[Rfam]
RNA: Mammalian CPEB3 ribozyme
RNA sequence: UCAUAAAUUCAAGCCCAUAGCACAAGUGCUCGCAGCACAGCCCUGUCAAAUUCCAAUGAAUCUGCAAAUUCUGCU
Numbered sequence: 001u002c003a004u005a006a007a008u009u010c011a012a013g014c015c016c017a018u019a020g021c022a023c024a025a026g027u028g029c030u031c032g033c034a035g036c037a038c039a040g041c042c043c044u045g046u047c048a049a050a051u052u053c054c055a056a057u058g059a060a061u062c063u064g065c066a067a068a069u070u071c072u073g074c075u
Base pairs, nucleotide, nucleotide: 013042015040019075020074021073022072024070025069026038027037028036047064048063050061051060052059053058